Shown here is a 100-nucleotide RNA from Methanolobus zinderi, a member of the family "Pyrrolysine insertion sequence 1".

RNA sequence: UAGGGACCAGAGACUUCCCUGUCCGCUCAGGGAAAUAUAUCUGCUGACUGUGCCGGUGGCAUGGCCUGCAGUGACAGCCAUGAAGUUUCACAACUAAAUG
Numbered sequence: 001u002a003g004g005g006a007c008c009a010g011a012g013a014c015u016u017c018c019c020u021g022u023c024c025g026c027u028c029a030g031g032g033a034a035a036u037a038u039a040u041c042u043g044c045u046g047a048c049u050g051u052g053c054c055g056g057u058g059g060c061a062u063g064g065c066c067u068g069c070a071g072u073g074a075c076a077g078c079c080a081u082g083a084a085g086u087u088u089c090a091c092a093a094c095u096a097a098a099u100g
Stems, first nucleotide, its partner, number of pairs: 010089008041059006
Dot-bracket structure: .........((((((((.......................((((((.......))))))......................))))))))...........

Its family is annotated with pyrrolysine incorporation in the Gene Ontology.